[Rfam]
RNA sequence: UUGACCGAGUACUCCCACUCGCCCUGCGGGCCGGCGAGCACGGUCUCGCCGAAGUACUCGCCGUCGGCCAUGUUGCCGAGCACGGUCUCGCCGCCGUACUCGCCGGUGCCGAUCUUGUCGACCUUGCCGUGCGCGAUCAGCACGACCUGGUCCUGCGGACGGCCCUUCUCGACGAUGACGUCGCCGACGCGGUACUCGCGCUGCUGGAAGCGGCCGGCCAGCGCGGCCAGCACGGCGUCGUCGUCGAACCCGCGCAGCAGCGACAGCUCGGUGAGCUCCAUCGGGAUGACGCGGAUGUCGGCGCCGGUGUUGGUGAACGAGACACGUCCAUCGCCGAGCGUGUAGGUGAGACGGCGGUUGACCCGGUACGCACCACCCGCCGCCUGCACCCAGGGCAGCACCUUGAGCAGCCAGCGGGAGGUGAUCCCCUGCAUCUGCGGAACGGACUUGGUGGUCGUGGCCAGAUUACGAGCGGCGGCCGUGCCCAAACUCAGCUGCUGACGGCCCU
Numbered sequence: 001u002u003g004a005c006c007g008a009g010u011a012c013u014c015c016c017a018c019u020c021g022c023c024c025u026g027c028g029g030g031c032c033g034g035c036g037a038g039c040a041c042g043g044u045c046u047c048g049c050c051g052a053a054g055u056a057c058u059c060g061c062c063g064u065c066g067g068c069c070a071u072g073u074u075g076c077c078g079a080g081c082a083c084g085g086u087c088u089c090g091c092c093g094c095c096g097u098a099c100u101c102g103c104c105g106g107u108g109c110c111g112a113u114c115u116u117g118u119c120g121a122c123c124u125u126g127c128c129g130u131g132c133g134c135g136a137u138c139a140g141c142a143c144g145a146c147c148u149g150g151u152c153c154u155g156c157g158g159a160c161g162g163c164c165c166u167u168c169u170c171g172a173c174g175a176u177g178a179c180g181u182c183g184c185c186g187a188c189g190c191g192g193u194a195c196u197c198g199c200g201c202u203g204c205u206g207g208a209a210g211c212g213g214c215c216g217g218c219c220a221g222c223g224c225g226g227c228c229a230g231c232a233c234g235g236c237g238u239c240g241u242c243g244u245c246g247a248a249c250c251c252g253c254g255c256a257g258c259a260g261c262g263a264c265a266g267c268u269c270g271g272u273g274a275g276c277u278c279c280a281u282c283g284g285g286a287u288g289a290c291g292c293g294g295a296u297g298u299c300g301g302c303g304c305c306g307g308u309g310u311u312g313g314u315g316a317a318c319g320a321g322a323c324a325c326g327u328c329c330a331u332c333g334c335c336g337a338g339c340g341u342g343u344a345g346g347u348g349a350g351a352c353g354g355c356g357g358u359u360g361a362c363c364c365g366g367u368a369c370g371c372a373c374c375a376c377c378c379g380c381c382g383c384c385u386g387c388a389c390c391c392a393g394g395g396c397a398g399c400a401c402c403u404u405g406a407g408c409a410g411c412c413a414g415c416g417g418g419a420g421g422u423g424a425u426c427c428c429c430u431g432c433a434u435c436u437g438c439g440g441a442a443c444g445g446a447c448u449u450g451g452u453g454g455u456c457g458u459g460g461c462c463a464g465a466u467u468a469c470g471a472g473c474g475g476c477g478g479c480c481g482u483g484c485c486c487a488a489a490c491u492c493a494g495c496u497g498c499u500g501a502c503g504g505c506c507c508u
Stems, first nucleotide, its partner, number of pairs: 007389001009387003014382001021325001025322001027319002031315001035313001037311005047303006054233002057230002060227005065111004075103001077102004082097005117222002120219001122217002127212001130209001132206002138203003143200002149196002154191004158185001160183001165174001167172001234296001236294001240290006249283001254278001256277003261270002329342003353377002356374002362370001391431005397425001399423003403418002407415001437476002440473001443470002446467001448464005477508002480503003486497002
Description
Rfam assigns this 508-nucleotide RNA sequence from Nocardia sp. NRRL S-836 to the family "Saccharopolyspora sRNA 350". The family has 2 seed sequences and 1,170 matches in Rfam 15.1. Its family is annotated with regulation of secondary metabolite biosynthetic process in the Gene Ontology. It is annotated as an antisense RNA. The base pairs follow the family's consensus structure, which was predicted with RNAfold. The organism belongs to Nocardia, within Bacteria.